[Rfam]
RNA sequence: CCGCCCGUCGCUCCUACCAAUUGAAUCGGAAGAUGAAAUUGCUGGAUUUUCGUAUUCUAUGCGGAGAGAAAGCACUUAAAUCUUUCUAUUUGUAGGAAGGAGAAGUCGUAACAAGGUAUUCGUAGGUGAACCUGCGGAAGGAUCAA
Numbered sequence: 001c002c003g004c005c006c007g008u009c010g011c012u013c014c015u016a017c018c019a020a021u022u023g024a025a026u027c028g029g030a031a032g033a034u035g036a037a038a039u040u041g042c043u044g045g046a047u048u049u050u051c052g053u054a055u056u057c058u059a060u061g062c063g064g065a066g067a068g069a070a071a072g073c074a075c076u077u078a079a080a081u082c083u084u085u086c087u088a089u090u091u092g093u094a095g096g097a098a099g100g101a102g103a104a105g106u107c108g109u110a111a112c113a114a115g116g117u118a119u120u121c122g123u124a125g126g127u128g129a130a131c132c133u134g135c136g137g138a139a140g141g142a143u144c145a146a
Stems, first nucleotide, its partner, number of pairs: 001115001003112001006108002009105001011102005017096002021092001023091004028086007037077002040074004047067008117140001119138008
The record is a 146-nucleotide part of an RNA from Monopylocystis visvesvarai, which matches "Eukaryotic small subunit ribosomal RNA" in Rfam. Rfam 15.1 lists 75,755 matches to the family in 2,556 species. Lineage of the source: Eukaryota > Heterolobosea > Eutetramitea > Psalteriomonadidae > Monopylocystis. The base pairs follow the family's consensus structure, which is taken from published work. The family is grouped with related families in Rfam's "SSU clan". The literature on the family includes a 2002 paper in BMC Bioinformatics by Cannone et al., "The comparative RNA web (CRW) site: an online database of comparative sequence and structure information for ribosomal, intron, and other RNAs".